[Rfam]
RNA sequence: UCACGGUUAGGCGAUGAGGCUCGCCUUGAACCGCCAUUUCGGCUGAUGGCCUCUACCAGAGA
Numbered sequence: 001u002c003a004c005g006g007u008u009a010g011g012c013g014a015u016g017a018g019g020c021u022c023g024c025c026u027u028g029a030a031c032c033g034c035c036a037u038u039u040c041g042g043c044u045g046a047u048g049g050c051c052u053c054u055a056c057c058a059g060a061g062a
Stems, first nucleotide, its partner, number of pairs: 010025004016053006033043003
Fluoride riboswitch aptamer (crcB RNA motif): a 62-nucleotide RNA from Mycobacterium triviale.
The source organism's lineage runs through Bacteria, Actinomycetota, Mycobacteriales, Mycobacterium and Mycobacterium (subgen. Mycolicibacillus).
Pairs were carried over by alignment from the consensus structure, which is taken from published work.
A search with the family's covariance model found it, with a score of 50 bits.